[Rfam]
RNA sequence: CUGUUGAUGGAUAAAGGUUCCUCUGAUUCUAGUUGAGGAAGCUUCACUUAAGGUGCAAAAUCCAAAAGCUGUUCCACAGCAGCGGCCAGACAACCGUAGAGAUGGAUCCACAGAUGAUUUGUUUGCAAUACUUUUCAUCUACUAAUUCUGUCUCACACUU
Number, nucleotide and partner (000 for none) at each position: 001c000002u057003g056004u055005u000006g000007a000008u000009g048010g047011a000012u046013a000014a044015a043016g042017g000018u040019u039020c038021c037022u036023c035024u000025g000026a000027u000028u000029c000030u000031a000032g000033u000034u000035g023036a022037g021038g020039a019040a018041g000042c016043u015044u014045c000046a012047c010048u009049u000050a000051a000052g000053g000054u000055g004056c003057a002058a000059a000060a000061u000062c000063c000064a000065a000066a000067a000068g000069c000070u000071g000072u000073u000074c000075c000076a000077c000078a000079g000080c000081a000082g000083c000084g000085g000086c000087c000088a000089g000090a000091c000092a000093a000094c000095c000096g000097u000098a000099g154100a153101g152102a151103u150104g149105g148106a147107u000108c000109c000110a000111c000112a000113g000114a000115u000116g134117a133118u000119u000120u130121g129122u128123u000124u000125g000126c000127a000128a122129u121130a120131c000132u000133u117134u116135u000136c000137a000138u000139c000140u000141a000142c000143u000144a000145a000146u000147u106148c105149u104150g103151u102152c101153u100154c099155a000156c000157a000158c000159u000160u000